Overview:
A member of the RNA family "eL15-Euryarchaeota ribosomal protein leader", 48 nucleotides long. The family's RNA type in Rfam is cis-regulatory leader. The family's consensus secondary structure is taken from published work.

[Rfam]
RNA sequence: CCCGUUUCGACGGGUCGGGAUGUGACCGUUUCACGGUUGAACCACCAA
Numbered sequence: 001c002c003c004g005u006u007u008c009g010a011c012g013g014g015u016c017g018g019g020a021u022g023u024g025a026c027c028g029u030u031u032c033a034c035g036g037u038u039g040a041a042c043c044a045c046c047a048a
Base pairs, nucleotide, nucleotide: 001014002013003012004011005010017043018042024038025037026036027035028034